[Rfam]
RNA sequence: GGCCUCCUGAUGUUUACCACAGGCUGUGUUCUUACACUGACUGUACAGAAAGAGGAGACAAAGUAAACCUGUCCCAUAUACAUCUCAGUCCUGGUCCUGUGCCUGGUCUUUAUUGUGAAUGGGAAGACAUGG
Dot-bracket structure: .(.(((((...........(((...((((....))))...))).........))))).)............((((((.........((.((.(((.....))).)).)).........))))))........
Numbered sequence: 001g002g003c004c005u006c007c008u009g010a011u012g013u014u015u016a017c018c019a020c021a022g023g024c025u026g027u028g029u030u031c032u033u034a035c036a037c038u039g040a041c042u043g044u045a046c047a048g049a050a051a052g053a054g055g056a057g058a059c060a061a062a063g064u065a066a067a068c069c070u071g072u073c074c075c076a077u078a079u080a081c082a083u084c085u086c087a088g089u090c091c092u093g094g095u096c097c098u099g100u101g102c103c104u105g106g107u108c109u110u111u112a113u114u115g116u117g118a119a120u121g122g123g124a125a126g127a128c129a130u131g132g
Stems, first nucleotide, its partner, number of pairs: 002059001004057005020043003026037004072124006087109002090106002093103003